[Rfam]
Shown here is a 101-nucleotide RNA from beta proteobacterium AAP65, a member of the family "TPP riboswitch aptamer (THI element)". From the family's description: Vitamin B(1) in its active form thiamin pyrophosphate (TPP) is an essential coenzyme that is synthesised by coupling of pyrimidine and thiazole moieties in bacteria. The previously detected thiamin-regulatory element, thi box was extended, resulting in a new, highly conserved RNA secondary structure, the THI element, which is widely distributed in eubacteria and also occurs in some archaea. Analysis of operon structures identified a large number of new candidate thiamin-regulated genes, mostly transporters, in various prokaryotic organisms.
RNA sequence: GCACACCGCUAGGGGUGUUGGGCUCGACAGGGCCCGACUGAGAAAGUCCCUUUGAACCUGAUUGAGGUAAUCCUCGCGCAGGGAAGCAGCCUGAAUGCCGC
Numbered sequence: 001g002c003a004c005a006c007c008g009c010u011a012g013g014g015g016u017g018u019u020g021g022g023c024u025c026g027a028c029a030g031g032g033c034c035c036g037a038c039u040g041a042g043a044a045a046g047u048c049c050c051u052u053u054g055a056a057c058c059u060g061a062u063u064g065a066g067g068u069a070a071u072c073c074u075c076g077c078g079c080a081g082g083g084a085a086g087c088a089g090c091c092u093g094a095a096u097g098c099c100g101c
Stems, first nucleotide, its partner, number of pairs: 006089001008087003011051004016045001017038008057082004063076004
Dot-bracket structure: .....(.(((((((.(((((((((......))))))))......)..)))).....((((..((((......))))..))))..))).)............
Record summary:
Taxonomically the source falls in Betaproteobacteria (Bacteria, Pseudomonadati, Pseudomonadota).